[Rfam]
RNA: Small nucleolar RNA SNORA73 family
RNA sequence: CCACUUAGGUCACGUGUGGUAACAGAAGAAAAAUGUGUACUCUCGCCAGCUCUGUCCAGGUGGCACAGGGAAGCACAGGGUUCUGUCCCACAGUGUGCAGUCCCUUUCCACGUUGGAAAAGCCACUGUGUCUGUGCCUGUGUAUUCCUACAACUUCUCAGAGCCUUUGGGCAAUGACUGAGGAGAUAAACUAUGCAGGAAACAAUA
Numbered sequence: 001c002c003a004c005u006u007a008g009g010u011c012a013c014g015u016g017u018g019g020u021a022a023c024a025g026a027a028g029a030a031a032a033a034u035g036u037g038u039a040c041u042c043u044c045g046c047c048a049g050c051u052c053u054g055u056c057c058a059g060g061u062g063g064c065a066c067a068g069g070g071a072a073g074c075a076c077a078g079g080g081u082u083c084u085g086u087c088c089c090a091c092a093g094u095g096u097g098c099a100g101u102c103c104c105u106u107u108c109c110a111c112g113u114u115g116g117a118a119a120a121g122c123c124a125c126u127g128u129g130u131c132u133g134u135g136c137c138u139g140u141g142u143a144u145u146c147c148u149a150c151a152a153c154u155u156c157u158c159a160g161a162g163c164c165u166u167u168g169g170g171c172a173a174u175g176a177c178u179g180a181g182g183a184g185a186u187a188a189a190c191u192a193u194g195c196a197g198g199a200a201a202c203a204a205u206a
Stems, first nucleotide, its partner, number of pairs: 001116003008057002011054002015048002018043002060111004069104002072101001073098001075096003078091001136198007153184006162171003